[Rfam]
RNA sequence: ACCAUCGAGGAGCUGAGGGGCAAGAUUCUUGGUGUCACCAUUGAGAACUCCAAGAUUGUCCUGCAGAUUGAAGAU
Numbered sequence: 001a002c003c004a005u006c007g008a009g010g011a012g013c014u015g016a017g018g019g020g021c022a023a024g025a026u027u028c029u030u031g032g033u034g035u036c037a038c039c040a041u042u043g044a045g046a047a048c049u050c051c052a053a054g055a056u057u058g059u060c061c062u063g064c065a066g067a068u069u070g071a072a073g074a075u
Stems, first nucleotide, its partner, number of pairs: 010069002013066003017062007027055006034048001
Shown here is a 75-nucleotide RNA from Phyllostomus discolor, a member of the family "mir-492 microRNA precursor family". A search with the family's covariance model found it, with a score of 82 bits. The literature on the family includes a 2005 paper in Nat Genet by Bentwich et al., "Identification of hundreds of conserved and nonconserved human microRNAs". The base pairs follow the family's consensus structure, which was predicted with RNAalifold. The organism belongs to Phyllostomus, within Eukaryota. Rfam links the family to the GO terms miRNA-mediated post-transcriptional gene silencing and RISC complex.